[Rfam]
RNA sequence: GGAUCAGCAGGGGACAAAAACGCCAUAAGAGAUGCAGAAAGGUAGGGAAGAGAAAGAUCGACAUCUGCUACCCUUCUUGUUCUCUUAUGCAUUUUUGUCCCCCGCUAGUCU
Numbered sequence: 001g002g003a004u005c006a007g008c009a010g011g012g013g014a015c016a017a018a019a020a021c022g023c024c025a026u027a028a029g030a031g032a033u034g035c036a037g038a039a040a041g042g043u044a045g046g047g048a049a050g051a052g053a054a055a056g057a058u059c060g061a062c063a064u065c066u067g068c069u070a071c072c073c074u075u076c077u078u079g080u081u082c083u084c085u086u087a088u089g090c091a092u093u094u095u096u097g098u099c100c101c102c103c104g105c106u107a108g109u110c111u
Base pairs, nucleotide, nucleotide: 002110003109004108006106007105008104010102011101012100013099014098015097016096017095018094019093020092022090024089025088026087027086028085029084030083031082032081041077042076044074045073046072047071049069050068051066052065053064